A member of the RNA family "mir-67 microRNA precursor family" from Strigamia maritima, 78 nucleotides long. Gene Ontology terms of the family: RISC complex and miRNA-mediated post-transcriptional gene silencing. Taxonomically the source falls in Strigamia (Eukaryota, Bilateria, Protostomia, Epimorpha). A reference for the family is Cao et al. (2008), "Identification of conserved microRNAs in Bombyx mori (silkworm) and regulation of fibroin L chain production by microRNAs in heterologous system", Insect Biochem Mol Biol.
RNA sequence: UCCUGACCUCACUCACUCAACUUGGCUGUGACGUGCCGUUUGAUCCGCCACAACCUCCUUGAGUGAGUGUAGUAAGGC
Numbered sequence: 001u002c003c004u005g006a007c008c009u010c011a012c013u014c015a016c017u018c019a020a021c022u023u024g025g026c027u028g029u030g031a032c033g034u035g036c037c038g039u040u041u042g043a044u045c046c047g048c049c050a051c052a053a054c055c056u057c058c059u060u061g062a063g064u065g066a067g068u069g070u071a072g073u074a075a076g077g078c
Stems, first nucleotide, its partner, number of pairs: 009069001012067009024055002027052004032047002